[Rfam]
RNA sequence: UAGAAGAAUGAGACACACCCAGAACCUGUUGCAAUUGGGUUUGCAUUUUCUGCCUUCUUGAAAGUAAAGGAGUAAUAAAAAAUUUCUUUUUAUAUCAAGAGGUUUGUUAUUGCUCCUUU
Numbered sequence: 001u002a003g004a005a006g007a008a009u010g011a012g013a014c015a016c017a018c019c020c021a022g023a024a025c026c027u028g029u030u031g032c033a034a035u036u037g038g039g040u041u042u043g044c045a046u047u048u049u050c051u052g053c054c055u056u057c058u059u060g061a062a063a064g065u066a067a068a069g070g071a072g073u074a075a076u077a078a079a080a081a082a083u084u085u086c087u088u089u090u091u092a093u094a095u096c097a098a099g100a101g102g103u104u105u106g107u108u109a110u111u112g113c114u115c116c117u118u119u
Stems, first nucleotide, its partner, number of pairs: 066119013080105003084101005
Shown here is a 119-nucleotide RNA from Malus baccata, a member of the family "Plastid-psbA-1 3UTR RNA". NCBI's taxonomy places the organism under Eukaryota, Streptophyta, eudicotyledons, Maleae, Malus. From the family's description: Plastid psbA-1 is a non-coding RNA (ncRNA) present in plastids. A search with the family's covariance model found it, with a score of 56 bits.